RNA sequence: GGCAGUGAUGGUGUAAUUUGCGUCUGACUCUGUGUCGGUGACAGAAUGCCUACUGUCAUAUACUGACACAGAUGACUGACGAUGACAGACUCUGAGCU
Numbered sequence: 001g002g003c004a005g006u007g008a009u010g011g012u013g014u015a016a017u018u019u020g021c022g023u024c025u026g027a028c029u030c031u032g033u034g035u036c037g038g039u040g041a042c043a044g045a046a047u048g049c050c051u052a053c054u055g056u057c058a059u060a061u062a063c064u065g066a067c068a069c070a071g072a073u074g075a076c077u078g079a080c081g082a083u084g085a086c087a088g089a090c091u092c093u094g095a096g097c098u
Base pairs, nucleotide, nucleotide: 001098002097003096021081022080023079024078030071031070032069033068034067038063039062040057041056042055043054044053
RNA: Small nucleolar RNA SNORD16
Organism: Neogobius melanostomus